[Rfam]
RNA sequence: GGCACUUGUGUUUGUUUUUGUCUAACUGUGGACAAAGACUUAGAGACAGGUGCAAAAAAAAAAAAUCCUCUUUUGCAACCCAGAACUCAUUGCUAAGUAUGAGUUUUGAUACAUGUAAGAAGGAAUAUC
Numbered sequence: 001g002g003c004a005c006u007u008g009u010g011u012u013u014g015u016u017u018u019u020g021u022c023u024a025a026c027u028g029u030g031g032a033c034a035a036a037g038a039c040u041u042a043g044a045g046a047c048a049g050g051u052g053c054a055a056a057a058a059a060a061a062a063a064a065a066u067c068c069u070c071u072u073u074u075g076c077a078a079c080c081c082a083g084a085a086c087u088c089a090u091u092g093c094u095a096a097g098u099a100u101g102a103g104u105u106u107u108g109a110u111a112c113a114u115g116u117a118a119g120a121a122g123g124a125a126u127a128u129c
Base pairs, nucleotide, nucleotide: 002053003052004051005050006049007048008047009046011044014039015038016037017036018035019034020033021032026030065126066125068123069122071120072119073118074117075116081108082107083106084105085104086103087102088101089100090099